[Rfam]
RNA sequence: UGUCCAAUCUAUGUGGUACCUUGCAGUAAUGUGGGGAGGAAAGUCCUGACACCAUAAAAAAGCUAGCAUCUUAUGGAUGCUGAAUCAUGUUAAAUGAAAGUGCCACAGAAACGAAAACUACUUUGCUUCGGCAGAGAAAAGAUGCAACGUGAGGAUGCUUGCUAAAGCAAGCUACUUCUUCUCAGUUCACCUGAUGGGUGUUCGAGUGGUAAACCAUAGCUGGUGCAAGCUUACCUAUCUUGUAUAGAGUAGUGCAGAUGUCGACUUUACGUCGACUUAGAGAAAUUCCACAUAGUACAGAAUCAGGCUUAUUAGAUUGGGCAAAAA
Dot-bracket structure: ((((((((((((((((..(((((((....)))))))....[[[.[[[[[((((.......((((((((((.....)))))(.(((...)))..)((...(((((.............((.((((((....))))))...)).......(.((((.......................)))).).(..(((((...)))))..)....)))..)))))))))))))...(((...................)))......((((((.....))))))...........)))))..........]]]]]]]].).))))))))))....
Numbered sequence: 001u002g003u004c005c006a007a008u009c010u011a012u013g014u015g016g017u018a019c020c021u022u023g024c025a026g027u028a029a030u031g032u033g034g035g036g037a038g039g040a041a042a043g044u045c046c047u048g049a050c051a052c053c054a055u056a057a058a059a060a061a062g063c064u065a066g067c068a069u070c071u072u073a074u075g076g077a078u079g080c081u082g083a084a085u086c087a088u089g090u091u092a093a094a095u096g097a098a099a100g101u102g103c104c105a106c107a108g109a110a111a112c113g114a115a116a117a118c119u120a121c122u123u124u125g126c127u128u129c130g131g132c133a134g135a136g137a138a139a140a141g142a143u144g145c146a147a148c149g150u151g152a153g154g155a156u157g158c159u160u161g162c163u164a165a166a167g168c169a170a171g172c173u174a175c176u177u178c179u180u181c182u183c184a185g186u187u188c189a190c191c192u193g194a195u196g197g198g199u200g201u202u203c204g205a206g207u208g209g210u211a212a213a214c215c216a217u218a219g220c221u222g223g224u225g226c227a228a229g230c231u232u233a234c235c236u237a238u239c240u241u242g243u244a245u246a247g248a249g250u251a252g253u254g255c256a257g258a259u260g261u262c263g264a265c266u267u268u269a270c271g272u273c274g275a276c277u278u279a280g281a282g283a284a285a286u287u288c289c290a291c292a293u294a295g296u297a298c299a300g301a302a303u304c305a306g307g308c309u310u311a312u313u314a315g316a317u318u319g320g321g322c323a324a325a326a327a
Stems, first nucleotide, its partner, number of pairs: 001323010011312001012292005019036007041310003045307005050225004061221005066080005081094001083091003095216002100214002102210003118141002121136006149183001151181004185203001188200005229253003260276006